[Rfam]
The family of this 267-nucleotide RNA sequence from Ructibacterium gallinarum is "Bacterial large signal recognition particle RNA". The organism belongs to Ructibacterium, within Bacteria. Pairs were carried over by alignment from the consensus structure, which is taken from published work.

RNA sequence: UCAUGUUAAAUCGGGGUGGUAGCGGUGCCUUGUAACCCUCAAUCCGCUAUAGGGGGGAUGAAAACUUGCCAUGAGGGAGAACCGUGUCCGGCCUGCCCUGUUCAAGUGGUGUUGACGGUCUGGUCCUGCGCAAUCGAAACCUGUGAACCUCGUCAGGGCGGGAACGCAGCAGCGAUAAGCAGUUAUUUUGAUGUGCCGUAGGGCAGCCAGACUUGAGCUUACUGUUCAGGUAACGCGGGUAUUGUUUUUUCGAAGGCAAGCACAUGA
Numbered sequence: 001u002c003a004u005g006u007u008a009a010a011u012c013g014g015g016g017u018g019g020u021a022g023c024g025g026u027g028c029c030u031u032g033u034a035a036c037c038c039u040c041a042a043u044c045c046g047c048u049a050u051a052g053g054g055g056g057g058a059u060g061a062a063a064a065c066u067u068g069c070c071a072u073g074a075g076g077g078a079g080a081a082c083c084g085u086g087u088c089c090g091g092c093c094u095g096c097c098c099u100g101u102u103c104a105a106g107u108g109g110u111g112u113u114g115a116c117g118g119u120c121u122g123g124u125c126c127u128g129c130g131c132a133a134u135c136g137a138a139a140c141c142u143g144u145g146a147a148c149c150u151c152g153u154c155a156g157g158g159c160g161g162g163a164a165c166g167c168a169g170c171a172g173c174g175a176u177a178a179g180c181a182g183u184u185a186u187u188u189u190g191a192u193g194u195g196c197c198g199u200a201g202g203g204c205a206g207c208c209a210g211a212c213u214u215g216a217g218c219u220u221a222c223u224g225u226u227c228a229g230g231u232a233a234c235g236c237g238g239g240u241a242u243u244g245u246u247u248u249u250u251c252g253a254a255g256g257c258a259a260g261c262a263c264a265u266g267a
Stems, first nucleotide, its partner, number of pairs: 001267006010059003013031006020024001036056005065260006075251005081245002084242007094232002098229003103224001106222002108219003117213008125202006131193002134191005139184001141182004150175004158167003

Overview:
It scores 182 bits against the family's covariance model. Rfam's curators write: The signal recognition particle (SRP) is a universally conserved ribonucleoprotein involved in the co-translational targeting of proteins to membranes.